The record is a 199-nucleotide RNA from Pseudarthrobacter sp. BIM B-2242, which matches "c-di-AMP riboswitch aptamer (ydaO/yuaA leader)" in Rfam. The organism belongs to Pseudarthrobacter, within Bacteria.
RNA sequence: UGAGCAGAUUUGCCUAACUCUGCCGCUGCCCCGGGAUCCCUUCGCAACAUUCGUCCGGCAGAGACGGGGAAACCACAUGACGGCCUGCUUCGGGCGGGCCUUGGGGUGAAGCCGCGCCUCCUGCCUUGCGCUGGAGAUGCGGCCGGGUGUCUCCCAUCCGAAUCCGACAGCUAACCUCGCAGGCAGUGGGAGAGGCCCU
Numbered sequence: 001u002g003a004g005c006a007g008a009u010u011u012g013c014c015u016a017a018c019u020c021u022g023c024c025g026c027u028g029c030c031c032c033g034g035g036a037u038c039c040c041u042u043c044g045c046a047a048c049a050u051u052c053g054u055c056c057g058g059c060a061g062a063g064a065c066g067g068g069g070a071a072a073c074c075a076c077a078u079g080a081c082g083g084c085c086u087g088c089u090u091c092g093g094g095c096g097g098g099c100c101u102u103g104g105g106g107u108g109a110a111g112c113c114g115c116g117c118c119u120c121c122u123g124c125c126u127u128g129c130g131c132u133g134g135a136g137a138u139g140c141g142g143c144c145g146g147g148u149g150u151c152u153c154c155c156a157u158c159c160g161a162a163u164c165c166g167a168c169a170g171c172u173a174a175c176c177u178c179g180c181a182g183g184c185a186g187u188g189g190g191a192g193a194g195g196c197c198c199u
Stems, first nucleotide, its partner, number of pairs: 011185004018063008065179005074103002104165003112142004145159004